[Rfam]
RNA sequence: GGGUGCUUGAGGCUGUUUGCCUCAGGCUUUCGCAAGAGGCAAACAGUGGAGAGUCCCACAUCAAAAAAACUGAUGGGGAGACCAACUUCACAACCAACAUUGCGAGGUUAGUCUCUUCAUUGCCGAAAAGCAAUAAGGAGGCUGGAAUG
Numbered sequence: 001g002g003g004u005g006c007u008u009g010a011g012g013c014u015g016u017u018u019g020c021c022u023c024a025g026g027c028u029u030u031c032g033c034a035a036g037a038g039g040c041a042a043a044c045a046g047u048g049g050a051g052a053g054u055c056c057c058a059c060a061u062c063a064a065a066a067a068a069a070c071u072g073a074u075g076g077g078g079a080g081a082c083c084a085a086c087u088u089c090a091c092a093a094c095c096a097a098c099a100u101u102g103c104g105a106g107g108u109u110a111g112u113c114u115c116u117u118c119a120u121u122g123c124c125g126a127a128a129a130g131c132a133a134u135a136a137g138g139a140g141g142c143u144g145g146a147a148u149g
Stems, first nucleotide, its partner, number of pairs: 001057003005054004012047012026033002059076001062072002078115005085108005091102002120140002123137001

About this RNA
The family of this 149-nucleotide RNA is "sok antitoxin (CssrC)". On this family, see Kawano et al., Mol Microbiol 2007: "An antisense RNA controls synthesis of an SOS-induced toxin evolved from an antitoxin". A search with the family's covariance model found it, with a score of 87 bits. Also identified in Shigella as CssrC. Rfam 15.1 lists 305 matches to the family in 167 species. Gene Ontology term of the family: mRNA binding. The base pairs follow the family's consensus structure, which is taken from published work.